RNA sequence: CUGUCACCGGCGCCAAGCGUCGGUCCUCAUUGCGGC
Numbered sequence: 001c002u003g004u005c006a007c008c009g010g011c012g013c014c015a016a017g018c019g020u021c022g023g024u025c026c027u028c029a030u031u032g033c034g035g036c
Stems, first nucleotide, its partner, number of pairs: 006024008
RNA: CRISPR RNA direct repeat element
Organism: Saccharopolyspora erythraea